[Rfam]
RNA sequence: UGAUGCUGCGCGGGAGAGUCAGGCCCGAGCCUGCGCCGAAGGGGCAAUUCCUCCCCGGAACCUCUCAGGCGCCCGGACCGUGCGGAGCAG
Numbered sequence: 001u002g003a004u005g006c007u008g009c010g011c012g013g014g015a016g017a018g019u020c021a022g023g024c025c026c027g028a029g030c031c032u033g034c035g036c037c038g039a040a041g042g043g044g045c046a047a048u049u050c051c052u053c054c055c056c057g058g059a060a061c062c063u064c065u066c067a068g069g070c071g072c073c074c075g076g077a078c079c080g081u082g083c084g085g086a087g088c089a090g
Base pairs, nucleotide, nucleotide: 006085007084008083009082010081011080012079013078020033021032022031023030035070036069037068038066039065042064043063044062048058049057
Description
Glycine riboswitch aptamer: a 90-nucleotide RNA from Nocardioides sp. Root190. A search with the family's covariance model found it, with a score of 66 bits. The organism belongs to Nocardioides, within Bacteria.